This 281-nucleotide RNA from Calonectris borealis belongs to the Rfam family "7SK RNA". By type it is a non-coding RNA gene. From the family's description: 7SK was discovered as an abundant small nuclear RNA in the mid-70s but a possible function has only recently been suggested. The source organism's lineage runs through Eukaryota, Opisthokonta, Saurischia, Procellariidae and Calonectris.
[Rfam]
RNA sequence: GGAUGUGAGGGCAAUCUGGCUGCAACCUCUGUCACCCCAUCGAUCUCCAGGGUUGAUUCAGCUGAUCUGGCUGGCUAGGCAGGUGUCCCCUUGCUCCAUCACUGCUCCCUGUGCAUCCCUCCCAAAGCGCACUUGGUCGAAGAGGACGACCUUCCCUGAUAGAGAUGUACCAUUCAUCGGUCAAGGGUAUACAGUAGCUGCGCUCCCCUGCUAGAACCUCCAAACAAGCUCAAGGUCCAUUUGUAGGAGAAUGUAGGCUUUUAAAAUGCUUUUUUUAAAAA
Numbered sequence: 001g002g003a004u005g006u007g008a009g010g011g012c013a014a015u016c017u018g019g020c021u022g023c024a025a026c027c028u029c030u031g032u033c034a035c036c037c038c039a040u041c042g043a044u045c046u047c048c049a050g051g052g053u054u055g056a057u058u059c060a061g062c063u064g065a066u067c068u069g070g071c072u073g074g075c076u077a078g079g080c081a082g083g084u085g086u087c088c089c090c091u092u093g094c095u096c097c098a099u100c101a102c103u104g105c106u107c108c109c110u111g112u113g114c115a116u117c118c119c120u121c122c123c124a125a126a127g128c129g130c131a132c133u134u135g136g137u138c139g140a141a142g143a144g145g146a147c148g149a150c151c152u153u154c155c156c157u158g159a160u161a162g163a164g165a166u167g168u169a170c171c172a173u174u175c176a177u178c179g180g181u182c183a184a185g186g187g188u189a190u191a192c193a194g195u196a197g198c199u200g201c202g203c204u205c206c207c208c209u210g211c212u213a214g215a216a217c218c219u220c221c222a223a224a225c226a227a228g229c230u231c232a233a234g235g236u237c238c239a240u241u242u243g244u245a246g247g248a249g250a251a252u253g254u255a256g257g258c259u260u261u262u263a264a265a266a267u268g269c270u271u272u273u274u275u276u277a278a279a280a281a
Stems, first nucleotide, its partner, number of pairs: 001108003005102004010097002014092001018090002025086002028083006035074002037070003042067004047061001117167001119164003122136004127132001137159003144155003197267001199265001207257005218249004224244005